[Rfam]
RNA sequence: GUGCAGGCUUGAUCGUGUGGUUACUUCGUUACUCAAACAAUUGUUCGUCACACAAUGUGGUUGGUUUCCAACUGUACCACUGAUGCCACCCUGUACUUUU
Numbered sequence: 001g002u003g004c005a006g007g008c009u010u011g012a013u014c015g016u017g018u019g020g021u022u023a024c025u026u027c028g029u030u031a032c033u034c035a036a037a038c039a040a041u042u043g044u045u046c047g048u049c050a051c052a053c054a055a056u057g058u059g060g061u062u063g064g065u066u067u068c069c070a071a072c073u074g075u076a077c078c079a080c081u082g083a084u085g086c087c088a089c090c091c092u093g094u095a096c097u098u099u100u
Base pairs, nucleotide, nucleotide: 002095003094004093005092006091007090012084013083014082015081017080018079019078020077025071026070028068